Description:
This 47-nucleotide sequence from Kolteria novifilia belongs to the Rfam family "Acido-Lenti-1 RNA".
RNA sequence: CCAGGGGUUGCCACCCCUGGCUAAUAAUCGGUCGCCGCUUCGCGGCU
Numbered sequence: 001c002c003a004g005g006g007g008u009u010g011c012c013a014c015c016c017c018u019g020g021c022u023a024a025u026a027a028u029c030g031g032u033c034g035c036c037g038c039u040u041c042g043c044g045g046c047u
Stems, first nucleotide, its partner, number of pairs: 001020008034046005